[Rfam]
RNA sequence: GUCAUUUUUCUAUACGUUCCUUGCCUCGAUGGACCGACUAAGCCAGAGCCGAGGCUGAUUAAACCCGUGAGGAGCUUACGAUG
Number, nucleotide and partner (000 for none) at each position: 001g000002u000003c000004a000005u000006u000007u000008u000009u000010c000011u000012a000013u000014a000015c000016g075017u074018u073019c072020c071021u070022u069023g055024c054025c053026u052027c051028g050029a000030u000031g044032g043033a000034c000035c000036g000037a000038c000039u000040a000041a000042g000043c032044c031045a000046g000047a000048g000049c000050c028051g027052a026053g025054g024055c023056u000057g000058a000059u000060u000061a000062a000063a000064c000065c000066c000067g000068u000069g022070a021071g020072g019073a018074g017075c016076u000077u000078a000079c000080g000081a000082u000083g000
The record is an 83-nucleotide sequence from Moritella sp. Urea-trap-13, which matches "RpsF leader" in Rfam. For this family Rfam cites "S6:S18 ribosomal protein complex interacts with a structural motif present in its own mRNA" (Matelska et al., RNA, 2013). From the family's description: Conserved and widely distributed to many bacterial species RNA structure. It precedes operon containing rpsF, which encodes ribosomal protein S6. The motif also precedes operon containing rpsR, which encodes ribosomal protein S18. The RNA was shown to interact with S6:S18 protein dimer in vitro. By type it is a cis-regulatory leader. Lineage of the source: Bacteria > Pseudomonadota > Alteromonadales > Moritellaceae > Moritella.